[Rfam]
RNA sequence: GUUACUGUUUUCUAGGGUUCCGCGGCGCAAGGCCGGCCUGGUCCGAGAGAAAACGCGCAGACCGAUACGUCUGCGUACACGGAGGGAAAAAAGCCCGGGAGGA
Numbered sequence: 001g002u003u004a005c006u007g008u009u010u011u012c013u014a015g016g017g018u019u020c021c022g023c024g025g026c027g028c029a030a031g032g033c034c035g036g037c038c039u040g041g042u043c044c045g046a047g048a049g050a051a052a053a054c055g056c057g058c059a060g061a062c063c064g065a066u067a068c069g070u071c072u073g074c075g076u077a078c079a080c081g082g083a084g085g086g087a088a089a090a091a092a093g094c095c096c097g098g099g100a101g102g103a
Base pairs, nucleotide, nucleotide: 007054008053009052010051011050012049015044016043020041021040022038023035024034025033026032055076056075057074058073059072060071061070062069078098080101084096085095086094
Dot-bracket structure: ......((((((..((...(((((((.....))))..).)).))....))))))((((((((......)))))))).(.[...(((.......))).)..]..